[Rfam]
RNA sequence: UUUCCCAGCAUUGUACCCAGGGUCUCUGCAGACAUUGCACCUGGAGCUGCCCCACCCCCAAAUAAAUCCCAA
Numbered sequence: 001u002u003u004c005c006c007a008g009c010a011u012u013g014u015a016c017c018c019a020g021g022g023u024c025u026c027u028g029c030a031g032a033c034a035u036u037g038c039a040c041c042u043g044g045a046g047c048u049g050c051c052c053c054a055c056c057c058c059c060a061a062a063u064a065a066a067u068c069c070c071a072a
Base pairs, nucleotide, nucleotide: 006049007048008047009046017044018043019042020041022033023032024031025030
Description: Rfam assigns this 72-nucleotide RNA from Toxostoma redivivum to the family "U1A polyadenylation inhibition element (PIE)". This family represents the U1A polyadenylation inhibition element (PIE). PIE is a regulatory RNA which is responsible for the regulation of the length of the polyA tail of the U1A pre-mRNA. The PIE is located in the U1A mRNA 3' UTR. PIE adopts a U-shaped structure, with binding sites for a single U1A protein at each bend and when complexed with the two proteins it blocks activity of poly(A) polymerase (PAP), and inhibits its activity. The family's RNA type in Rfam is cis-regulatory element. The literature on the family includes a 2004 paper in Biochemistry by Clerte and Hall, "Global and Local Dynamics of the U1A Polyadenylation Inhibition Element (PIE) RNA and PIE RNA-U1A Complexes". Pairs were carried over by alignment from the consensus structure, which is taken from published work. A search with the family's covariance model found it, with a score of 50 bits.